[Rfam]
RNA sequence: GUCAGGUACCCCAUGCCUCUGCGGCAGGGGCUUGUUUCGGCAAGUCUGGACUUGACCAGAUUCAGCCAUGAGCCUUUUGUUUCGGCAAGAGGUUAUCGGGCUACGAUAGUCGGGGAGUGUUUGCGUUCCUACCUACGGGUGCGUGCCAGCCUGUAGCUCUAGAAUUCCUGGGUUAAACAGCAAAACGGGGUGUUAUGCAGUGCUCGGGAAAAAGUACCGCCCACUAUCCUUAUCGAGGCAACCAUUAC
Numbered sequence: 001g002u003c004a005g006g007u008a009c010c011c012c013a014u015g016c017c018u019c020u021g022c023g024g025c026a027g028g029g030g031c032u033u034g035u036u037u038c039g040g041c042a043a044g045u046c047u048g049g050a051c052u053u054g055a056c057c058a059g060a061u062u063c064a065g066c067c068a069u070g071a072g073c074c075u076u077u078u079g080u081u082u083c084g085g086c087a088a089g090a091g092g093u094u095a096u097c098g099g100g101c102u103a104c105g106a107u108a109g110u111c112g113g114g115g116a117g118u119g120u121u122u123g124c125g126u127u128c129c130u131a132c133c134u135a136c137g138g139g140u141g142c143g144u145g146c147c148a149g150c151c152u153g154u155a156g157c158u159c160u161a162g163a164a165u166u167c168c169u170g171g172g173u174u175a176a177a178c179a180g181c182a183a184a185a186c187g188g189g190g191u192g193u194u195a196u197g198c199a200g201u202g203c204u205c206g207g208g209a210a211a212a213a214g215u216a217c218c219g220c221c222c223a224c225u226a227u228c229c230u231u232a233u234c235g236a237g238g239c240a241a242c243c244a245u246u247a248c
Stems, first nucleotide, its partner, number of pairs: 001056007010030002012027001015025002031044004059234003064102004105228006113220001115218001127163002133156008143242002145239003165210009177201002180198003184194003
RNA: HNH endonuclease-associated RNA and ORF (HEARO) RNA
Organism: Ktedonobacter racemifer